[Rfam]
RNA sequence: GUCCCUAUCGUCUAGAGGCCUAGGACACCGCCCUUUCACGGCGGCGACCGGGGUUCGAAUCCCCGUAGGGACG
Numbered sequence: 001g002u003c004c005c006u007a008u009c010g011u012c013u014a015g016a017g018g019c020c021u022a023g024g025a026c027a028c029c030g031c032c033c034u035u036u037c038a039c040g041g042c043g044g045c046g047a048c049c050g051g052g053g054u055u056c057g058a059a060u061c062c063c064c065g066u067a068g069g070g071a072c073g
Stems, first nucleotide, its partner, number of pairs: 001072007010026004028044005049065005

Shown here is a 73-nucleotide sequence from Denitromonas iodatirespirans, a member of the family "tRNA". Lineage of the source: Bacteria > Betaproteobacteria > Rhodocyclales > Zoogloeaceae > Denitromonas. On this family, see Hou, Trends Biochem Sci 1993: "The tertiary structure of tRNA and the development of the genetic code". The base pairs follow the family's consensus structure, which is taken from published work. The family's RNA type in Rfam is transfer RNA.